Rfam assigns this 52-nucleotide RNA sequence from Parvibaculum lavamentivorans to the family "serC leader".
Rfam describes the family as follows. This family is a putative regulatory RNA structure that is found upstream of the serC-serA operon in some alpha-proteobacteria. The final stem of the structure overlaps the ribosome binding site of the serC reading frame.

RNA sequence: CGGCGGGACACCCCUCCCCACCGAGGGGCAGCUAUCUGAGAGGAUAGGUUGC
Numbered sequence: 001c002g003g004c005g006g007g008a009c010a011c012c013c014c015u016c017c018c019c020a021c022c023g024a025g026g027g028g029c030a031g032c033u034a035u036c037u038g039a040g041a042g043g044a045u046a047g048g049u050u051g052c
Stems, first nucleotide, its partner, number of pairs: 011028006032047006
By type it is a cis-regulatory leader. The pairing is the family consensus, mapped onto this sequence.